[Rfam]
Rfam assigns this 81-nucleotide RNA from Proteiniborus ethanoligenes to the family "Group II catalytic intron D1-D4-1". Lineage of the source: Bacteria > Bacillota > Clostridia > Eubacteriales > Proteiniborus. Its family is annotated with Group II intron splicing in the Gene Ontology. Group II introns are found in rRNA, tRNA and mRNA of organelles in fungi, plants and protists, and also in mRNA in bacteria.
RNA sequence: AACCAUGGUUUAAACAAGAUUUAUCAUGAGAAGUCAGCAGAGACCAUAGCACUAUGAGAAUCUAGAUACCAUAGGAAGGGU
Numbered sequence: 001a002a003c004c005a006u007g008g009u010u011u012a013a014a015c016a017a018g019a020u021u022u023a024u025c026a027u028g029a030g031a032a033g034u035c036a037g038c039a040g041a042g043a044c045c046a047u048a049g050c051a052c053u054a055u056g057a058g059a060a061u062c063u064a065g066a067u068a069c070c071a072u073a074g075g076a077a078g079g080g081u
Stems, first nucleotide, its partner, number of pairs: 001021002004018001006016002009013001034041002043081003052074005
Dot-bracket structure: ((.(.((.(...).)).).))............((....)).(((......(((((.............)))))....)))